[Rfam]
RNA sequence: GGCGAAUUAGCUCAGUUGGUUAGAGCGACGGAAUCAUAAUCCGCAGGUCCCGUGUUCGAGUCACGGAUUCGCCA
Number, nucleotide and partner (000 for none) at each position: 001g073002g072003c071004g070005a069006a068007u067008u000009a000010g026011c025012u024013c023014a000015g000016u000017u000018g000019g000020u000021u000022a000023g013024a012025g011026c010027g000028a000029c043030g042031g041032a040033a000034u000035c000036a000037u000038a000039a000040u032041c031042c030043g029044c000045a000046g000047g000048u000049c000050c066051c065052g064053u063054g062055u000056u000057c000058g000059a000060g000061u000062c054063a053064c052065g051066g050067a007068u006069u005070c004071g003072c002073c001074a000
RNA: tRNA